[Rfam]
RNA sequence: GUGGAAGCUCCAUCUAUAAAUGGAUAAUACUUUUGUAUGUAUAUGAAUUUUUUAAGCUAGCAAUCCCCCAAUAGCUUGUUCUUAGAACAAGCUAUUGGGGGAUUGCUAG
Numbered sequence: 001g002u003g004g005a006a007g008c009u010c011c012a013u014c015u016a017u018a019a020a021u022g023g024a025u026a027a028u029a030c031u032u033u034u035g036u037a038u039g040u041a042u043a044u045g046a047a048u049u050u051u052u053u054a055a056g057c058u059a060g061c062a063a064u065c066c067c068c069c070a071a072u073a074g075c076u077u078g079u080u081c082u083u084a085g086a087a088c089a090a091g092c093u094a095u096u097g098g099g100g101g102a103u104u105g106c107u108a109g
Stems, first nucleotide, its partner, number of pairs: 009024005058108009068098003073093005
The family of this 109-nucleotide sequence from Dendrobium salaccense is "Plastid-psbA-1 3UTR RNA". Rfam's curators put it in the seed alignment. Lineage of the source: Eukaryota > Embryophyta > Spermatophyta > Liliopsida > Dendrobium. It is annotated as a cis-regulatory element. Plastid psbA-1 is a non-coding RNA (ncRNA) present in plastids. It was identified in inverted repeat sequences in the 3 prime untranslate region (3UTR) of photosystem II quinone-binding protein (psbA). For this family Rfam cites "Retrograde signaling in plants: A critical review focusing on the GUN pathway and beyond" (Richter et al., Plant Commun, 2023).